The record is a 59-nucleotide RNA sequence from Stutzerimonas stutzeri, which matches "Selenocysteine insertion sequence 3" in Rfam. By type it is a cis-regulatory element. Gene Ontology term of the family: selenocysteine incorporation. On this family, see Huttenhofer et al., RNA 1996: "Solution structure of mRNA hairpins promoting selenocysteine incorporation in Escherichia coli and their base-specific interaction with special elongation factor SELB".
RNA sequence: GUCUGACACGGACCGACGGUGGCAGGUCUUGCCCCUUCAUUCGGUCGCGGUGCCAUGAC
Numbered sequence: 001g002u003c004u005g006a007c008a009c010g011g012a013c014c015g016a017c018g019g020u021g022g023c024a025g026g027u028c029u030u031g032c033c034c035c036u037u038c039a040u041u042c043g044g045u046c047g048c049g050g051u052g053c054c055a056u057g058a059c
Stems, first nucleotide, its partner, number of pairs: 007049001009047003013043001015042002018035002021033005